RNA: mir-5880 microRNA precursor family
Organism: Brugia malayi
RNA sequence: UGUCCAAGUUUGAUCUAACAAAUUACCGACGUGUGCAAAAACUGUUACAUCGGUAACUUGUUAGGUCAAACUUGGACA
Numbered sequence: 001u002g003u004c005c006a007a008g009u010u011u012g013a014u015c016u017a018a019c020a021a022a023u024u025a026c027c028g029a030c031g032u033g034u035g036c037a038a039a040a041a042c043u044g045u046u047a048c049a050u051c052g053g054u055a056a057c058u059u060g061u062u063a064g065g066u067c068a069a070a071c072u073u074g075g076a077c078a
Stems, first nucleotide, its partner, number of pairs: 001078021023056007031048002035045003